Shown here is a 414-nucleotide RNA from Tsuneonella suprasediminis, a member of the family "Bacterial RNase P class A".
The organism belongs to Tsuneonella, within Bacteria.
The family's RNA type in Rfam is ribozyme.
RNA sequence: UCAGGGGGCCGGGCAGCCGCGUGCGGGGCAACCCGUGUCGAGGAAAGUCCGGGCUCCACGAAGCAAGGGUGGCGGGUAACGCCCGCCCGGCGCAAGCCGAGGGAAAGUGCCACAGAGAGUAUACCGCCGAUGGAGGGAAACCUCACAGGCAAGGGUGAAAGGGUGCGGUAAAGGCGCACCGGGGCGCUGGUGACAGGGCCCGCAUGGCAAACCCCACCCGGAGCAAGGCCGAAUAGGGGCGGCGCGCCUUCGCGAAAGCGGGGCAGGUCUGUUUCGGACCCGACCGCCCGGGUUGGCUGCUUGAGCGUACGGAGCAAUCCGUCGCCCAGAUGAAUGGCUGCCACUGCCGAUACGGUCCGGCAUGUUCGGAUACCGUCGGCGGUACAGAACCCGGCUUACAGGCCCCCUGACACC
Numbered sequence: 001u002c003a004g005g006g007g008g009c010c011g012g013g014c015a016g017c018c019g020c021g022u023g024c025g026g027g028g029c030a031a032c033c034c035g036u037g038u039c040g041a042g043g044a045a046a047g048u049c050c051g052g053g054c055u056c057c058a059c060g061a062a063g064c065a066a067g068g069g070u071g072g073c074g075g076g077u078a079a080c081g082c083c084c085g086c087c088c089g090g091c092g093c094a095a096g097c098c099g100a101g102g103g104a105a106a107g108u109g110c111c112a113c114a115g116a117g118a119g120u121a122u123a124c125c126g127c128c129g130a131u132g133g134a135g136g137g138a139a140a141c142c143u144c145a146c147a148g149g150c151a152a153g154g155g156u157g158a159a160a161g162g163g164u165g166c167g168g169u170a171a172a173g174g175c176g177c178a179c180c181g182g183g184g185c186g187c188u189g190g191u192g193a194c195a196g197g198g199c200c201c202g203c204a205u206g207g208c209a210a211a212c213c214c215c216a217c218c219c220g221g222a223g224c225a226a227g228g229c230c231g232a233a234u235a236g237g238g239g240c241g242g243c244g245c246g247c248c249u250u251c252g253c254g255a256a257a258g259c260g261g262g263g264c265a266g267g268u269c270u271g272u273u274u275c276g277g278a279c280c281c282g283a284c285c286g287c288c289c290g291g292g293u294u295g296g297c298u299g300c301u302u303g304a305g306c307g308u309a310c311g312g313a314g315c316a317a318u319c320c321g322u323c324g325c326c327c328a329g330a331u332g333a334a335u336g337g338c339u340g341c342c343a344c345u346g347c348c349g350a351u352a353c354g355g356u357c358c359g360g361c362a363u364g365u366u367c368g369g370a371u372a373c374c375g376u377c378g379g380c381g382g383u384a385c386a387g388a389a390c391c392c393g394g395c396u397u398a399c400a401g402g403c404c405c406c407c408u409g410a411c412a413c414c
Base pairs, nucleotide, nucleotide: 001410002409003408004407005406006405007404008403009402010401011399012342013341014340015339016338017337018336020040021039024035025034026033027032045397046396047395049394050393051392052391053390054223055222056221057220063274065272067219068218069217070216071215072086073085074084075083076082087101088099089098090097091096102214103213107212108211109208110207111206124154125153126150127149128148131147132146133144134143135142136141162180163179164178165177166176167175181203182201183200184199185198187196188195189194227298228297229296230295237289238288239287240286241285242284266280267279268278269277270276305325306324307323309322310321311320312319313318